[Rfam]
RNA sequence: UAUAUACUAUUGGCAGCAUAGGAACCCAGUGAAUGUCAUCUUGCUGAUGGCUGGGGGCUAACCAAGAGAGGUAAAGGUGUGGGAUACUGCAUCUAAACCAAGACCAAGUUAGAGAUAACUCGGUAUCCGGGAAUAAACCACCGCUUUGGUUAGAAGCGCGACACGCUAUCCGAUGUAAACGAGUAUUAGGUCAGGCACGACAAGAGGCUCUGCAGAAAUGCAUCCCACGUGAUGAUACUAGCGUGAGAAACUAGUAUCUGCGUUCUCAAAAGAAGUGCUCGCGUUGACGGAAGGUAACUUCCUAUAACUGACUUGAUAUGUACCUGUAGGGGUAUCCGCGACAUAUAAGAUCACUCCUUUUAUGUAGCUGAAGCUCCCUGAAAGUUGAGAGGUAAUUCCAAUCCUCUCCGUUGCUACGGUUAGGAAACUAACCCAUUCUGGAAGUAUAAGGGUCGCUCCCUUAUGCUCAGCCCAGCGUGAACGUGCGUGAAUAACAAAUCAUAGUAAGUGUCGUAUGGCGAAGGCUGCCUAUGCUCUUUUUUAUUAU
Number, nucleotide and partner (000 for none) at each position: 001u000002a000003u000004a000005u000006a000007c000008u543009a542010u000011u000012g539013g538014c000015a000016g535017c000018a000019u000020a000021g530022g529023a000024a000025c055026c054027c053028a052029g051030u000031g000032a000033a000034u000035g000036u050037c049038a048039u047040c046041u000042u000043g000044c000045u000046g040047a039048u038049g037050g036051c029052u028053g027054g026055g025056g000057g000058c153059u152060a151061a150062c149063c148064a000065a000066g000067a000068g000069a000070g099071g098072u097073a000074a000075a094076g093077g092078u091079g090080u089081g088082g087083g000084a000085u000086a000087c082088u081089g080090c079091a078092u077093c076094u075095a000096a000097a072098c071099c070100a000101a126102g000103a124104c123105c122106a000107a120108g119109u118110u117111a116112g000113a000114g000115a000116u111117a110118a109119c108120u107121c000122g105123g104124u103125a000126u101127c000128c000129g000130g139131g138132a000133a000134u000135a000136a000137a000138c131139c130140a000141c000142c000143g000144c000145u000146u000147u000148g063149g062150u061151u060152a059153g058154a000155a000156g000157c000158g000159c000160g528161a000162c000163a000164c000165g000166c000167u000168a000169u000170c000171c000172g000173a000174u497175g000176u000177a000178a000179a000180c000181g000182a000183g319184u318185a317186u316187u315188a314189g313190g312191u311192c310193a309194g308195g278196c277197a276198c275199g000200a000201c000202a000203a000204g000205a000206g000207g000208c000209u000210c000211u222212g221213c220214a219215g000216a000217a000218a000219u214220g213221c212222a211223u000224c000225c000226c000227a263228c262229g261230u260231g000232a000233u000234g258235a257236u256237a255238c254239u253240a252241g000242c000243g000244u268245g267246a266247g265248a000249a000250a000251c000252u240253a239254g238255u237256a236257u235258c234259u000260g230261c229262g228263u227264u000265c247266u246267c245268a244269a000270a000271a000272g000273a000274a000275g198276u197277g196278c195279u341280c340281g339282c338283g337284u000285u000286g000287a000288c000289g302290g301291a300292a299293g298294g000295u000296a000297a000298c293299u292300u291301c290302c289303u000304a000305u000306a000307a000308c194309u193310g192311a191312c190313u189314u188315g187316a186317u185318a184319u183320g000321u000322a000323c384324c000325u000326g000327u000328a000329g379330g378331g377332g376333u000334a000335u000336c000337c283338g282339c281340g280341a279342c000343a000344u000345a000346u000347a000348a000349g000350a000351u000352c000353a000354c000355u000356c000357c000358u000359u000360u000361u000362a000363u000364g000365u000366a000367g471368c470369u469370g468371a000372a000373g000374c000375u000376c332377c331378c330379u329380g000381a000382a000383a000384g323385u000386u000387g486388a000389g000390a407391g405392g404393u000394a000395a000396u000397u000398c000399c000400a000401a000402u000403c000404c392405u391406c000407u390408c000409c483410g482411u481412u000413g000414c000415u000416a000417c000418g432419g000420u000421u000422a000423g000424g000425a000426a000427a000428c000429u000430a000431a000432c418433c000434c000435a000436u000437u477438c000439u475440g000441g473442a000443a000444g467445u000446a464447u463448a462449a461450g460451g459452g458453u000454c000455g000456c000457u000458c452459c451460c450461u449462u448463a447464u446465g000466c000467u444468c370469a369470g368471c367472c000473c441474a000475g439476c000477g437478u000479g000480a000481a411482c410483g409484u000485g000486c387487g000488u000489g000490a000491a000492u000493a000494a000495c000496a000497a174498a000499u000500c000501a000502u000503a000504g000505u000506a000507a000508g000509u000510g000511u000512c000513g000514u000515a000516u527517g526518g525519c524520g000521a000522a000523g000524g519525c518526u517527g516528c160529c022530u021531a000532u000533g000534c000535u016536c000537u000538u013539u012540u000541u000542u009543a008544u000545u000546a000547u000
RNA: ROOL RNA